Rfam assigns this 121-nucleotide RNA from Frankineae bacterium MT45 to the family "Glycine riboswitch aptamer".

RNA sequence: GUCAAUUGCGCGGGAGAGUCCGUCGACGCGAAGUGGCUGCAGCACCUGCAGCGAUUCGUCCGACGGCGCCGAAGGGGCAACAUCCCCGGAACCUCUCAGGCACCCGAACCGCGCGACUGAG
Numbered sequence: 001g002u003c004a005a006u007u008g009c010g011c012g013g014g015a016g017a018g019u020c021c022g023u024c025g026a027c028g029c030g031a032a033g034u035g036g037c038u039g040c041a042g043c044a045c046c047u048g049c050a051g052c053g054a055u056u057c058g059u060c061c062g063a064c065g066g067c068g069c070c071g072a073a074g075g076g077g078c079a080a081c082a083u084c085c086c087c088g089g090a091a092c093c094u095c096u097c098a099g100g101c102a103c104c105c106g107a108a109c110c111g112c113g114c115g116a117c118u119g120a121g
Stems, first nucleotide, its partner, number of pairs: 006116008020066006068101003071097002075095003081088001

It scores 60 bits against the family's covariance model. Taxonomically the source falls in Frankiales (Bacteria, Bacillati, Actinomycetota, Actinomycetes). This family represents the bacterial glycine riboswitch. Glycine riboswitches usually consist of two metabolite-binding aptamers domains with similar structures in tandem. The aptamers cooperatively bind glycine to regulate the expression of downstream genes.